A member of the RNA family "DUF805b RNA", 34 nucleotides long. The base pairs follow the family's consensus structure, which is taken from published work. By type it is a cis-regulatory element.
[Rfam]
RNA sequence: ACGGAGGAACCGAAAAUCCAUAAUAGAAUAGGAA
Numbered sequence: 001a002c003g004g005a006g007g008a009a010c011c012g013a014a015a016a017u018c019c020a021u022a023a024u025a026g027a028a029u030a031g032g033a034a
Base pairs, nucleotide, nucleotide: 003019004018005017010032011031